[Rfam]
The record is a 197-nucleotide sequence from Batrachochytrium dendrobatidis, which matches "U2 spliceosomal RNA" in Rfam.
The base pairs follow the family's consensus structure, which is taken from published work.
From the family's description: U2 is a small nuclear RNA (snRNA) component of the spliceosome (involved in pre-mRNA splicing).
NCBI's taxonomy places the organism under Eukaryota, Chytridiomycota, Chytridiomycotina, Rhizophydiales, Batrachochytrium dendrobatidis.
Nucleotides: 197
Stems, first nucleotide, its partner, number of pairs: 007027003012023004048067006069084006118150007127138004154189005160182005
Number, partner (000 for none) and nucleotide at each position: 001000g002000c003000a004000u005000c006000c007027u008026c009025u010000c011000a012023g013022g014021c015020c016000u017000u018000u019000u020015g021014g022013c023012u024000a025009a026008g027007a028000u029000c030000a031000a032000g033000u034000g035000u036000a037000g038000u039000a040000u041000c042000u043000g044000u045000u046000c047000u048067u049066u050065u051064c052063a053062g054000u055000g056000u057000g058000a059000c060000a061000a062053c063052u064051g065050a066049a067048a068000c069084u070083c071082g072081g073080a074079g075000u076000u077000c078000g079074c080073u081072c082071c083070g084069a085000u086000u087000g088000u089000u090000g091000u092000c093000a094000a095000a096000c097000u098000u099000a100000u101000u102000u103000u104000u105000g106000a107000u108000g109000g110000u111000u112000c113000g114000c115000a116000g117000a118150g119149c120148u121147u122146g123145g124144u125000u126000a127138g128137u129136u130135g131000c132000u133000u134000g135130c136129a137128a138127c139000g140000c141000c142000u143000c144124g145123c146122c147121g148120a149119g150118c151000a152000c153000a154189g155188g156187u157186g158185u159000c160182c161181c162180u163179c164178c165000u166000a167000u168000u169000g170000c171000a172000c173000u174000a175000u176000c177000u178164g179163g180162a181161g182160g183000u184000g185158a186157c187156g188155c189154c190000g191000a192000g193000u194000g195000c196000u197000c